A member of the RNA family "tRNA" from Podospora anserina, 81 nucleotides long. Lineage of the source: Eukaryota > Opisthokonta > Ascomycota > sordariomyceta > Podospora. Transfer RNA (tRNA) molecules are approximately 80 nucleotides in length.
RNA sequence: GGAAAAGUUGCCAUAGGUAAGGUAAGAUAUUUGCUAAAUAUUGUGUUUAAGCACCUAGGUGUUCGAGUCACCUCUUUUCCG
Numbered sequence: 001g002g003a004a005a006a007g008u009u010g011c012c013a014u015a016g017g018u019a020a021g022g023u024a025a026g027a028u029a030u031u032u033g034c035u036a037a038a039u040a041u042u043g044u045g046u047u048u049a050a051g052c053a054c055c056u057a058g059g060u061g062u063u064c065g066a067g068u069c070a071c072c073u074c075u076u077u078u079c080c081g
Base pairs, nucleotide, nucleotide: 001080002079003078004077005076006075007074009024010023011022012021026042027041028040029039030038057073058072059071060070061069
Dot-bracket structure: (((((((.((((........)))).(((((.......)))))..............(((((.......)))))))))))).

Pairs were carried over by alignment from the consensus structure, which is taken from published work.